Small nucleolar RNA R64/Z200 family: a 93-nucleotide sequence from Selaginella moellendorffii.
A search with the family's covariance model found it, with a score of 47 bits.
By type it is a C/D-box small nucleolar RNA.
Gene Ontology terms of the family: nucleolus and RNA processing.
The source organism's lineage runs through Eukaryota, Viridiplantae, Selaginellaceae, Selaginelloideae and Selaginella.
Rfam 15.1 lists 748 matches to the family in 228 species.
RNA sequence: UCUCUGCUGUGAUGCCAUUGAUUUUACAUGUUAGACUAUGGAGAUGGAUUCAAUCCAUCGCUGAGAACAACGCACUCGUUGCCUGAGCAGAGA
Numbered sequence: 001u002c003u004c005u006g007c008u009g010u011g012a013u014g015c016c017a018u019u020g021a022u023u024u025u026a027c028a029u030g031u032u033a034g035a036c037u038a039u040g041g042a043g044a045u046g047g048a049u050u051c052a053a054u055c056c057a058u059c060g061c062u063g064a065g066a067a068c069a070a071c072g073c074a075c076u077c078g079u080u081g082c083c084u085g086a087g088c089a090g091a092g093a
Base pairs, nucleotide, nucleotide: 001093002092003091004090005089006088007087043059044058045057046056047055048054